RNA sequence: GUUGCAAGUUUGAGGCCACAGCAGAAGUGCUCACUGAGCGGCUUGUCAGAUUCCAACAAAUCUGUGAUUUCUGCU
Numbered sequence: 001g002u003u004g005c006a007a008g009u010u011u012g013a014g015g016c017c018a019c020a021g022c023a024g025a026a027g028u029g030c031u032c033a034c035u036g037a038g039c040g041g042c043u044u045g046u047c048a049g050a051u052u053c054c055a056a057c058a059a060a061u062c063u064g065u066g067a068u069u070u071c072u073g074c075u
Stems, first nucleotide, its partner, number of pairs: 012043001015042003020075007027039002047064006
About this RNA
Shown here is a 75-nucleotide RNA sequence from Alligator sinensis, a member of the family "Mammalian CPEB3 ribozyme". Pairs were carried over by alignment from the consensus structure, which is taken from published work. The match comes from Rfam's covariance-model search (42 bits). The source organism's lineage runs through Eukaryota, Metazoa, Crocodylia, Alligatorinae and Alligator.